[Rfam]
RNA sequence: GCGAGCGAUGGGGAUGGGGUUCCCCCGAAACCGCCGCGCCGGGCCGACCCGCCAGGUUCGACCGACCGGCUGAUGACUCCUGCUGCGCA
Numbered sequence: 001g002c003g004a005g006c007g008a009u010g011g012g013g014a015u016g017g018g019g020u021u022c023c024c025c026c027g028a029a030a031c032c033g034c035c036g037c038g039c040c041g042g043g044c045c046g047a048c049c050c051g052c053c054a055g056g057u058u059c060g061a062c063c064g065a066c067c068g069g070c071u072g073a074u075g076a077c078u079c080c081u082g083c084u085g086c087g088c089a
Stems, first nucleotide, its partner, number of pairs: 010026004016080006033070004
Dot-bracket structure: .........[[[[..((((((.]]]]......((((..............................))))....)))))).........

Record summary: This 89-nucleotide RNA sequence from Rhodoplanes serenus belongs to the Rfam family "Fluoride riboswitch aptamer (crcB RNA motif)". Its family is annotated with positive regulation of gene expression and response to fluoride in the Gene Ontology. NCBI's taxonomy places the organism under Bacteria, Pseudomonadati, Pseudomonadota, Alphaproteobacteria, Rhodoplanes.